Background:
The record is a 153-nucleotide sequence from Amborella trichopoda, which matches "MIR8565 microRNA precursor family" in Rfam. NCBI's taxonomy places the organism under Eukaryota, Viridiplantae, Streptophyta, Embryophyta, Amborella.

RNA sequence: CUCACACCUAUGUGUAUAAGACCUCAAAGGAUUAUUAUUAAAUUUGACACAGAUCUCUAGAAAAGUUAUCACAUGGUGUGAGACUUGAUUUUUCUAGAGAUUUGUGUCAAAUUUAAUGGUAAUCCUUUGUGGUCCUACACACAUGGGUGUGAG
Numbered sequence: 001c002u003c004a005c006a007c008c009u010a011u012g013u014g015u016a017u018a019a020g021a022c023c024u025c026a027a028a029g030g031a032u033u034a035u036u037a038u039u040a041a042a043u044u045u046g047a048c049a050c051a052g053a054u055c056u057c058u059a060g061a062a063a064a065g066u067u068a069u070c071a072c073a074u075g076g077u078g079u080g081a082g083a084c085u086u087g088a089u090u091u092u093u094c095u096a097g098a099g100a101u102u103u104g105u106g107u108c109a110a111a112u113u114u115a116a117u118g119g120u121a122a123u124c125c126u127u128u129g130u131g132g133u134c135c136u137a138c139a140c141a142c143a144u145g146g147g148u149g150u151g152a153g
Base pairs, nucleotide, nucleotide: 002152003151004150005149006148007147008146009145010144011143012142013141015139017137018136020134021133022132023131025129026128027127028126030124031123032122034120035119036118037117038116039115040114041113042112043111044110045109046108047107048106049105050104051103052102053101054100055099056098057097058096059095060094061093062092063091064090065089066088067087068086069081070080071079072078073077